RNA: terC RNA
RNA sequence: GUUCGGGUCCGGGCCCCUCUGGCGACCGAGGCGUCGGUCGUGAUGUCGGAACCUCUUG
Numbered sequence: 001g002u003u004c005g006g007g008u009c010c011g012g013g014c015c016c017c018u019c020u021g022g023c024g025a026c027c028g029a030g031g032c033g034u035c036g037g038u039c040g041u042g043a044u045g046u047c048g049g050a051a052c053c054u055c056u057u058g
Base pairs, nucleotide, nucleotide: 006052008050009049010048011047012046022041023040024039025038026037027036028035029034